RNA: FMN riboswitch aptamer (RFN element)
RNA sequence: CAUCGUUCUCGGGGCGGGGUGAAAUUCCCCACCGGCGGUAACAGCGUUUAUUGCGCUGAAGCCCGCGAGCGCUUGCCGGCGGUUUAACUGCCAGCAAGGUCAGCAGAUCCGGUGUAACUCCGGAGCCGACGGUAUAGUCCGGAUAAGAGAGAGCGUGU
Numbered sequence: 001c002a003u004c005g006u007u008c009u010c011g012g013g014g015c016g017g018g019g020u021g022a023a024a025u026u027c028c029c030c031a032c033c034g035g036c037g038g039u040a041a042c043a044g045c046g047u048u049u050a051u052u053g054c055g056c057u058g059a060a061g062c063c064c065g066c067g068a069g070c071g072c073u074u075g076c077c078g079g080c081g082g083u084u085u086a087a088c089u090g091c092c093a094g095c096a097a098g099g100u101c102a103g104c105a106g107a108u109c110c111g112g113u114g115u116a117a118c119u120c121c122g123g124a125g126c127c128g129a130c131g132g133u134a135u136a137g138u139c140c141g142g143a144u145a146a147g148a149g150a151g152a153g154c155g156u157g158u
Stems, first nucleotide, its partner, number of pairs: 004155007017029003031138002033128002035066004061126002069104002108124005130141003